[Rfam]
RNA sequence: GCUGAGGGAUGAUGACAGUAAAAGGCCGAAUUGCAGUGUCCUCCAGCAGUUUUCUGUCAUGGAAGGACGCAAUGGCAAAUCUCCUGAAGCGAAUUGGGUCUGACCUCAGC
Dot-bracket structure: (((((((......(((........((......))....(((..(((..((.((((........)))).)).(.(.....).).)))..).)).....)))...)))))))
RNA: Small nucleolar RNA SNORD89